[Rfam]
Shown here is a 47-nucleotide RNA from Alkalibacterium sp. AK22, a member of the family "Na+ riboswitch aptamer (DUF1646)". A reference for the family is White et al. (2022), "Na(+) riboswitches regulate genes for diverse physiological processes in bacteria", Nat Chem Biol. Pairs were carried over by alignment from the consensus structure, which is taken from published work. Rfam links the family to the GO terms regulation of gene expression and sodium ion binding. The organism belongs to Alkalibacterium, within Bacteria.
RNA sequence: GGUUGGGCGUAAGCUUUCAAGGACUAUUUCUUCUAGGGCGAGAAGAA
Numbered sequence: 001g002g003u004u005g006g007g008c009g010u011a012a013g014c015u016u017u018c019a020a021g022g023a024c025u026a027u028u029u030c031u032u033c034u035a036g037g038g039c040g041a042g043a044a045g046a047a
Base pairs, nucleotide, nucleotide: 003020004019005018006015007014008013028047029046030045031044032043033042034041